[Rfam]
RNA: S4-Fusobacteriales ribosomal protein leader
RNA sequence: UUGUAAAAGUAUGUUUGGCUGUAGAGCUUAUUCCUUAUAAAACUUAUGUAAGGGCAUAUUGAAGAA
Numbered sequence: 001u002u003g004u005a006a007a008a009g010u011a012u013g014u015u016u017g018g019c020u021g022u023a024g025a026g027c028u029u030a031u032u033c034c035u036u037a038u039a040a041a042a043c044u045u046a047u048g049u050a051a052g053g054g055c056a057u058a059u060u061g062a063a064g065a066a
Stems, first nucleotide, its partner, number of pairs: 008060006014030001017028004033053007